[Rfam]
RNA: Small nucleolar RNA SNORA25
Organism: Muntiacus reevesi
RNA sequence: AGGUCAUUUCAAAGAGGGCUAAUGGGACCAAAUCUAGGAACCCUUAAUGCUGUGACCAAAGACUGAGUUCUUCAUUGGAUAUUACAGUCACUCGACGGUGCUAUGCUUUCCUCAUGGAGAUACAAGC
Number, nucleotide and partner (000 for none) at each position: 001a000002g057003g056004u055005c054006a053007u052008u000009u000010c000011a000012a000013a000014g045015a044016g043017g042018g041019c000020u039021a000022a000023u037024g000025g000026g035027a000028c000029c000030a000031a000032a000033u000034c000035u026036a000037g023038g000039a020040a000041c018042c017043c016044u015045u014046a000047a000048u000049g000050c000051u000052g007053u006054g005055a004056c003057c002058a000059a000060a000061g000062a000063c000064u000065g000066a000067g000068u000069u120070c119071u118072u117073c116074a000075u000076u000077g111078g110079a109080u000081a000082u000083u000084a104085c000086a102087g101088u000089c100090a099091c098092u097093c000094g000095a000096c000097g092098g091099u090100g089101c087102u086103a000104u084105g000106c000107u000108u000109u079110c078111c077112u000113c000114a000115u000116g073117g072118a071119g070120a069121u000122a000123c000124a000125a000126g000127c000